[Rfam]
RNA: Bacillaceae-1 RNA
Organism: Cytobacillus depressus
RNA sequence: CAUAUGAUAUGGCAUACUAAAUACGCGACGUCCUGUCGUAACGUAUGCACUCGUACAUCCUGUACA
Numbered sequence: 001c002a003u004a005u006g007a008u009a010u011g012g013c014a015u016a017c018u019a020a021a022u023a024c025g026c027g028a029c030g031u032c033c034u035g036u037c038g039u040a041a042c043g044u045a046u047g048c049a050c051u052c053g054u055a056c057a058u059c060c061u062g063u064a065c066a
Base pairs, nucleotide, nucleotide: 012048013047014046015045016044017043025039026038027037028036029035053065054064055063056062